[Rfam]
RNA sequence: AAUUUCGGGUAAUCGCGGGUAGUCAUACCUGAGGAAAGUCCAUGCUCACACUGACUGAGAGGUCAGUAGUGUUCGUGCUUAGCGAAAGCAUAAGCUAAGGCAGAGACGGCGGGAAAAACGGCUUCAGCCCUAGGGCUAUGCCCCAGUAUCCCUGAAAAGUGCCACAGUGACGAAGUUAGUUGGGAAACCAGCUAAGUGGAACGAGGUAAACCCCUCGAGUGAGCAACCCAAAUUCGGUAGGGGCACUUGGCAAGCAGAAAUGAAUGUGAGCCGAGGCAGCAAUGCAGAUAGAUGAUUACCGAACUUGCAAACAACCUGGGAUGCAAGGGAACAGAACAUGGCUUAUAGAA
Numbered sequence: 001a002a003u004u005u006c007g008g009g010u011a012a013u014c015g016c017g018g019g020u021a022g023u024c025a026u027a028c029c030u031g032a033g034g035a036a037a038g039u040c041c042a043u044g045c046u047c048a049c050a051c052u053g054a055c056u057g058a059g060a061g062g063u064c065a066g067u068a069g070u071g072u073u074c075g076u077g078c079u080u081a082g083c084g085a086a087a088g089c090a091u092a093a094g095c096u097a098a099g100g101c102a103g104a105g106a107c108g109g110c111g112g113g114a115a116a117a118a119c120g121g122c123u124u125c126a127g128c129c130c131u132a133g134g135g136c137u138a139u140g141c142c143c144c145a146g147u148a149u150c151c152c153u154g155a156a157a158a159g160u161g162c163c164a165c166a167g168u169g170a171c172g173a174a175g176u177u178a179g180u181u182g183g184g185a186a187a188c189c190a191g192c193u194a195a196g197u198g199g200a201a202c203g204a205g206g207u208a209a210a211c212c213c214c215u216c217g218a219g220u221g222a223g224c225a226a227c228c229c230a231a232a233u234u235c236g237g238u239a240g241g242g243g244c245a246c247u248u249g250g251c252a253a254g255c256a257g258a259a260a261u262g263a264a265u266g267u268g269a270g271c272c273g274a275g276g277c278a279g280c281a282a283u284g285c286a287g288a289u290a291g292a293u294g295a296u297u298a299c300c301g302a303a304c305u306u307g308c309a310a311a312c313a314a315c316c317u318g319g320g321a322u323g324c325a326a327g328g329g330a331a332c333a334g335a336a337c338a339u340g341g342c343u344u345a346u347a348g349a350a
Stems, first nucleotide, its partner, number of pairs: 004350003007346001008300007016031006036344003040341005045223005050067006073218003077214001078099006100107001101105001108213002111152004120142003126137003159211002161207003176195008227242003246275006276285003304327006
The family of this 350-nucleotide RNA from Aerococcus sanguinicola is "Bacterial RNase P class B". The source organism's lineage runs through Bacteria, Bacillati, Bacilli, Aerococcaceae and Aerococcus. The family's consensus secondary structure is taken from published work. Rfam links the family to the GO terms ribonuclease P activity, tRNA processing and dimeric ribonuclease P complex. A reference for the family is Brown (1999), "The Ribonuclease P Database", Nucleic Acids Res. About the family: Ribonuclease P (RNase P) is a ubiquitous endoribonuclease, found in archaea, bacteria and eukarya as well as chloroplasts and mitochondria. Its best characterised activity is the generation of mature 5'-ends of tRNAs by cleaving the 5'-leader elements of precursor-tRNAs. Cellular RNase Ps are ribonucleoproteins. RNA from bacterial RNase Ps retains its catalytic activity in the absence of the protein subunit, i.e. it is a ribozyme. Isolated eukaryotic and archaeal RNase P RNA has not been shown to retain its catalytic function, but is still essential for the catalytic activity of the holoenzyme. Although the archaeal and eukaryotic holoenzyme s have a much greater protein content than the bacterial ones, the RNA cores from all the three lineages are homologous -- helices corresponding to P1, P2, P3, P4, and P10/11 are common to all cellular RNase P RNAs. Yet, there is considerable sequence variation, particularly among the eukaryotic RNAs.